[Rfam]
RNA sequence: CUACUCCCUUCAUCCCAUAAUGUAAGACGUUUUUUAACACUGCACUAGUGUCAAAAGACGUCUUACAUUAUGGGACGGAGGGAGUAG
Numbered sequence: 001c002u003a004c005u006c007c008c009u010u011c012a013u014c015c016c017a018u019a020a021u022g023u024a025a026g027a028c029g030u031u032u033u034u035u036a037a038c039a040c041u042g043c044a045c046u047a048g049u050g051u052c053a054a055a056a057g058a059c060g061u062c063u064u065a066c067a068u069u070a071u072g073g074g075a076c077g078g079a080g081g082g083a084g085u086a087g
Stems, first nucleotide, its partner, number of pairs: 003085003007081005013075005019069017037051005

MIR1120/MIR1122 microRNA precursor family: an 87-nucleotide RNA from Triticum urartu.
Rfam links the family to the GO terms miRNA-mediated post-transcriptional gene silencing and RISC complex.
For this family Rfam cites "Cloning and characterization of microRNAs from wheat (Triticum aestivum L.)" (Yao et al., Genome Biol, 2007).
The organism belongs to Triticum, within Eukaryota.
Pairs were carried over by alignment from the consensus structure, which was predicted with RNAalifold.